[Rfam]
RNA: MIR7504 microRNA precursor family
RNA sequence: AAUAGUUUUAUGCCACAUCAGUAUUCUUAUCCUGAAUUUCAAAAUUUUAAUUUGGAUUUGAUUUUUUUCAGAAUGAAAAUGCUAAAAUUCAGGAUGAAAAUGCUGAUGUGACAUAAAACUAUU
Numbered sequence: 001a002a003u004a005g006u007u008u009u010a011u012g013c014c015a016c017a018u019c020a021g022u023a024u025u026c027u028u029a030u031c032c033u034g035a036a037u038u039u040c041a042a043a044a045u046u047u048u049a050a051u052u053u054g055g056a057u058u059u060g061a062u063u064u065u066u067u068u069c070a071g072a073a074u075g076a077a078a079a080u081g082c083u084a085a086a087a088u089u090c091a092g093g094a095u096g097a098a099a100a101u102g103c104u105g106a107u108g109u110g111a112c113a114u115a116a117a118a119c120u121a122u123u
Base pairs, nucleotide, nucleotide: 001123002122003121004120005119006118007117008116009115010114011113012112014110015109016108017107018106019105020104021103022102023101024100025099027097029095030094031093032092033091034090035089036088037087038086039085041083045079046078047077048076